The record is a 66-nucleotide RNA sequence from Rattus norvegicus, which matches "mir-463 microRNA precursor family" in Rfam. Rfam's curators put it in the seed alignment. The family has 2 seed sequences and 3 matches in Rfam 15.1.
RNA sequence: UUUUACCUAAUUUGUUGUCCAUCAUGUAAAAUUUAAGUGAUGAUAGACGCCAAUUUGGGUAGAGGA
Numbered sequence: 001u002u003u004u005a006c007c008u009a010a011u012u013u014g015u016u017g018u019c020c021a022u023c024a025u026g027u028a029a030a031a032u033u034u035a036a037g038u039g040a041u042g043a044u045a046g047a048c049g050c051c052a053a054u055u056u057g058g059g060u061a062g063a064g065g066a
Stems, first nucleotide, its partner, number of pairs: 001064010012053003016049004020042006